[Rfam]
RNA sequence: UUGUCCUUGUGUUAUUUGCAAGCUGUUCUUUAAAGCUUGUGAUCGUCAAAAAGGACAUACAGUAAUUCUCAACAACUCGUUAUUACCUUUACAUGGUCUUUUCUGUGAAGGUAUCUCCAUAUGUUGAGGACAUCU
Numbered sequence: 001u002u003g004u005c006c007u008u009g010u011g012u013u014a015u016u017u018g019c020a021a022g023c024u025g026u027u028c029u030u031u032a033a034a035g036c037u038u039g040u041g042a043u044c045g046u047c048a049a050a051a052a053g054g055a056c057a058u059a060c061a062g063u064a065a066u067u068c069u070c071a072a073c074a075a076c077u078c079g080u081u082a083u084u085a086c087c088u089u090u091a092c093a094u095g096g097u098c099u100u101u102u103c104u105g106u107g108a109a110g111g112u113a114u115c116u117c118c119a120u121a122u123g124u125u126g127a128g129g130a131c132a133u134c135u
Base pairs, nucleotide, nucleotide: 002057003056004055005054006053007052010048011047016042017041018040019039020038021037022036084113085112086111087110088109089108090107091106092105093104
Source information:
A member of the RNA family "Small nucleolar RNA psi18S-1377" from Megaselia scalaris, 135 nucleotides long. It is annotated as an H/ACA-box small nucleolar RNA. Gene Ontology terms of the family: RNA processing and nucleolus. Taxonomically the source falls in Megaselia (Eukaryota, Mandibulata, Panorpida, Diptera).